[Rfam]
RNA sequence: UAAAAAUCAAUGAAAAAGAGAGUAAGUAGACUCACUUUCUUAGCGAUCAAGGGACGGUGUAAGCCUUGAAAAGUAAUCUACCGAACCGCACUUUGAAGAUGCAUAAGUGAAGUCAUAGCUUAUGUCGCGAAUGAAGCGUUAUUAUUUUAAAGUUGGAUUGUACAUUGUACAAUCAAUAAGAGUGGUACCGCGUAAUGAUAAUAAUUUCGUCUCUUGC
Numbered sequence: 001u002a003a004a005a006a007u008c009a010a011u012g013a014a015a016a017a018g019a020g021a022g023u024a025a026g027u028a029g030a031c032u033c034a035c036u037u038u039c040u041u042a043g044c045g046a047u048c049a050a051g052g053g054a055c056g057g058u059g060u061a062a063g064c065c066u067u068g069a070a071a072a073g074u075a076a077u078c079u080a081c082c083g084a085a086c087c088g089c090a091c092u093u094u095g096a097a098g099a100u101g102c103a104u105a106a107g108u109g110a111a112g113u114c115a116u117a118g119c120u121u122a123u124g125u126c127g128c129g130a131a132u133g134a135a136g137c138g139u140u141a142u143u144a145u146u147u148u149a150a151a152g153u154u155g156g157a158u159u160g161u162a163c164a165u166u167g168u169a170c171a172a173u174c175a176a177u178a179a180g181a182g183u184g185g186u187a188c189c190g191c192g193u194a195a196u197g198a199u200a201a202u203a204a205u206u207u208c209g210u211c212u213c214u215u216g217c
Stems, first nucleotide, its partner, number of pairs: 007099002015094004026081005036072003047069006102124007126138003156174007179214004190210003194206003